[Rfam]
RNA: U4 spliceosomal RNA
RNA sequence: AACCUUUCGCAGGAGUGUAUCGACGACAUUGAAGUUCUUACUGAGUCUCGAUUAUUGCUGAUUGCAAACAAUACUCCAACUACUCUCUAGACCACUGGUUUAGAGGAAUUUUUAACUGGCCUUCGGGCC
Numbered sequence: 001a002a003c004c005u006u007u008c009g010c011a012g013g014a015g016u017g018u019a020u021c022g023a024c025g026a027c028a029u030u031g032a033a034g035u036u037c038u039u040a041c042u043g044a045g046u047c048u049c050g051a052u053u054a055u056u057g058c059u060g061a062u063u064g065c066a067a068a069c070a071a072u073a074c075u076c077c078a079a080c081u082a083c084u085c086u087c088u089a090g091a092c093c094a095c096u097g098g099u100u101u102a103g104a105g106g107a108a109u110u111u112u113u114a115a116c117u118g119g120c121c122u123u124c125g126g127g128c129c
Stems, first nucleotide, its partner, number of pairs: 019052005025047003033042003084106010118129004
Dot-bracket structure: ..................(((((.(((.....(((....)))..))))))))...............................((((((((((...))))))))))...........((((....))))